[Rfam]
RNA: Actinobacteria sRNA Ms_IGR-5
Organism: Marinactinospora thermotolerans
RNA sequence: ACGCAAGAAGGGAGGUGGUCCGAAAGUGCAUUCUUUUAGGACUCGCGAGGUGUUCGUCCGCUAGGGCGACCCGUAUACGGGAUCGCUCCGGCGAAUCCCUGAUGGACACCCAGACCUCCGGGUGGCCGGCCUUGUCCACCGGCCACGGAGCGCCUCGGCGCUCCGAGCCCGGGGGUCCGUCCAU
Numbered sequence: 001a002c003g004c005a006a007g008a009a010g011g012g013a014g015g016u017g018g019u020c021c022g023a024a025a026g027u028g029c030a031u032u033c034u035u036u037u038a039g040g041a042c043u044c045g046c047g048a049g050g051u052g053u054u055c056g057u058c059c060g061c062u063a064g065g066g067c068g069a070c071c072c073g074u075a076u077a078c079g080g081g082a083u084c085g086c087u088c089c090g091g092c093g094a095a096u097c098c099c100u101g102a103u104g105g106a107c108a109c110c111c112a113g114a115c116c117u118c119c120g121g122g123u124g125g126c127c128g129g130c131c132u133u134g135u136c137c138a139c140c141g142g143c144c145a146c147g148g149a150g151c152g153c154c155u156c157g158g159c160g161c162u163c164c165g166a167g168c169c170c171g172g173g174g175g176u177c178c179g180u181c182c183a184u
Stems, first nucleotide, its partner, number of pairs: 014058005059093004064088006071080003111179001113177011125143005